Bacterial small subunit ribosomal RNA: a 509-nucleotide part of an RNA from Qipengyuania oceanensis. Its Rfam clan is "SSU clan". A search with the family's covariance model found it, with a score of 1563 bits. Lineage of the source: Bacteria > Pseudomonadati > Pseudomonadota > Erythrobacteraceae > Qipengyuania.
RNA sequence: AAACUUGAGAGUUUGAUCCUGGCUCAGAACGAACGCUGGCGGCAUGCCUAACACAUGCAAGUCGAACGAACCCUUCGGGGUUAGUGGCGCACGGGUGCGUAACGCGUGGGAACCUGCCUUUAGGUUCGGAAUAACUCAGAGAAAUUUGAGCUAAUACCGGAUAAUGUCUUCGGACCAAAGAUUUAUCGCCUUUAGAUGGGCCCGCGUUGGAUUAGCUAGUUGGUGGGGUAAAGGCCUACCAAGGCGACGAUCCAUAGCUGGUCUGAGAGGAUGAUCAGCCACACUGGGACUGAGACACGGCCCAGACUCCUACGGGAGGCAGCAGUGGGGAAUAUUGGACAAUGGGCGAAAGCCUGAUCCAGCAAUGCCGCGUGAGUGAUGAAGGCCUUAGGGUUGUAAAGCUCUUUUACCAGGGAUGAUAAUGACAGUACCUGGAGAAUAAGCUCCGGCUAACUCCGUGCCAGCAGCCGCGGUAAUACGGAGGGAGCUAGCGUUGUUCGGAAUUACUG
Numbered sequence: 001a002a003a004c005u006u007g008a009g010a011g012u013u014u015g016a017u018c019c020u021g022g023c024u025c026a027g028a029a030c031g032a033a034c035g036c037u038g039g040c041g042g043c044a045u046g047c048c049u050a051a052c053a054c055a056u057g058c059a060a061g062u063c064g065a066a067c068g069a070a071c072c073c074u075u076c077g078g079g080g081u082u083a084g085u086g087g088c089g090c091a092c093g094g095g096u097g098c099g100u101a102a103c104g105c106g107u108g109g110g111a112a113c114c115u116g117c118c119u120u121u122a123g124g125u126u127c128g129g130a131a132u133a134a135c136u137c138a139g140a141g142a143a144a145u146u147u148g149a150g151c152u153a154a155u156a157c158c159g160g161a162u163a164a165u166g167u168c169u170u171c172g173g174a175c176c177a178a179a180g181a182u183u184u185a186u187c188g189c190c191u192u193u194a195g196a197u198g199g200g201c202c203c204g205c206g207u208u209g210g211a212u213u214a215g216c217u218a219g220u221u222g223g224u225g226g227g228g229u230a231a232a233g234g235c236c237u238a239c240c241a242a243g244g245c246g247a248c249g250a251u252c253c254a255u256a257g258c259u260g261g262u263c264u265g266a267g268a269g270g271a272u273g274a275u276c277a278g279c280c281a282c283a284c285u286g287g288g289a290c291u292g293a294g295a296c297a298c299g300g301c302c303c304a305g306a307c308u309c310c311u312a313c314g315g316g317a318g319g320c321a322g323c324a325g326u327g328g329g330g331a332a333u334a335u336u337g338g339a340c341a342a343u344g345g346g347c348g349a350a351a352g353c354c355u356g357a358u359c360c361a362g363c364a365a366u367g368c369c370g371c372g373u374g375a376g377u378g379a380u381g382a383a384g385g386c387c388u389u390a391g392g393g394u395u396g397u398a399a400a401g402c403u404c405u406u407u408u409a410c411c412a413g414g415g416a417u418g419a420u421a422a423u424g425a426c427a428g429u430a431c432c433u434g435g436a437g438a439a440u441a442a443g444c445u446c447c448g449g450c451u452a453a454c455u456c457c458g459u460g461c462c463a464g465c466a467g468c469c470g471c472g473g474u475a476a477u478a479c480g481g482a483g484g485g486a487g488c489u490a491g492c493g494u495u496g497u498u499c500g501g502a503a504u505u506a507c508u509g
Base pairs, nucleotide, nucleotide: 009025010024011023012022013021027499028498029497030496032495033494034493035492036491037490039371040370041369042368043367044366045364046363047329052327053326054325056324057323058322061088062087063086066085067084069082070081071080072079073078095282096281097280104207105206106205107204108203109202110201113199114198118195119194122191123190124189126160127159128158129157135150136149137148138147139146140145166175167174168173180187181186208254209253210252215245216244217243220242221241222240223239224238225237226236227235257279258278259277260276261272262271263270264269284305285304286303287302288301307318308317309316310315335361337360338359339358343356344355345354346353347352374404375403376402377401384395385394386393387392410435411434412433413432414431418426443488444487445486446485447484454483455482456481457480458479464471465470